The record is a 69-nucleotide RNA from Pleuronectes platessa, which matches "Small nucleolar RNA SNORD75" in Rfam. Its family is annotated with RNA processing and nucleolus in the Gene Ontology. Taxonomically the source falls in Pleuronectes (Eukaryota, Metazoa, Teleostei, Osteoglossocephalai). The match comes from Rfam's covariance-model search (60 bits). On this family, see Galardi et al., Mol Cell Biol 2002: "Purified box C/D snoRNPs are able to reproduce site-specific 2'-O-methylation of target RNA in vitro". It is annotated as a C/D-box small nucleolar RNA. The family has 5 seed sequences and 767 matches in Rfam 15.1.
RNA sequence: AGUCGUUGAUGAUUUAAAUUGUAAGAGUAGUGGACAGAAGUGAUUUCUGAGCAGCUUUAGACUGAGACU
Numbered sequence: 001a002g003u004c005g006u007u008g009a010u011g012a013u014u015u016a017a018a019u020u021g022u023a024a025g026a027g028u029a030g031u032g033g034a035c036a037g038a039a040g041u042g043a044u045u046u047c048u049g050a051g052c053a054g055c056u057u058u059a060g061a062c063u064g065a066g067a068c069u
Base pairs, nucleotide, nucleotide: 001069002068003067004066